[Rfam]
RNA sequence: UGGAUAUAAUGAUCGCAAUUGGUCCGUGUUUCUGAAUAGCCUUCGAGCUACUGGAGAAAUACCAGCGAUUUUUCCUACUGAUCCA
Number, nucleotide and partner (000 for none) at each position: 001u085002g084003g083004a082005u000006a000007u000008a000009a000010u000011g000012a000013u000014c000015g000016c000017a000018a000019u000020u000021g000022g000023u000024c000025c000026g000027u000028g000029u000030u000031u000032c000033u000034g000035a000036a000037u000038a000039g000040c000041c000042u000043u000044c000045g000046a000047g000048c000049u000050a000051c000052u000053g000054g000055a000056g000057a000058a000059a000060u000061a000062c000063c000064a000065g000066c000067g000068a000069u000070u000071u000072u000073u000074c000075c000076u000077a000078c000079u000080g000081a000082u004083c003084c002085a001
Rfam assigns this 85-nucleotide RNA sequence from Physcomitrium patens to the family "Small nucleolar RNA SNORD18". The family's consensus secondary structure was predicted with PFOLD. The organism belongs to Physcomitrium, within Eukaryota. A search with the family's covariance model found it, with a score of 41 bits. Its Rfam clan is "SNORD18 clan". A reference for the family is Giorgi et al. (2001), "Release of U18 snoRNA from its host intron requires interaction of Nop1p with the Rnt1p endonuclease", EMBO J.